[Rfam]
Flavo-1 RNA: an 85-nucleotide RNA from Chryseobacterium hagamense. The source organism's lineage runs through Bacteria, Bacteroidota, Flavobacteriia, Weeksellaceae and Chryseobacterium. It scores 63 bits against the family's covariance model.

RNA sequence: UCCUAGCCCUGAUUGCAGCGGCAUCCUUUUUCCGCCGGGCGUUUUGGCGACGGCGAAAAAGAUACAGCGGAAAGCAGGUUCCCGG
Numbered sequence: 001u002c003c004u005a006g007c008c009c010u011g012a013u014u015g016c017a018g019c020g021g022c023a024u025c026c027u028u029u030u031u032c033c034g035c036c037g038g039g040c041g042u043u044u045u046g047g048c049g050a051c052g053g054c055g056a057a058a059a060a061g062a063u064a065c066a067g068c069g070g071a072a073a074g075c076a077g078g079u080u081c082c083c084g085g
Stems, first nucleotide, its partner, number of pairs: 009077003013073002018068002023063003029058004034054003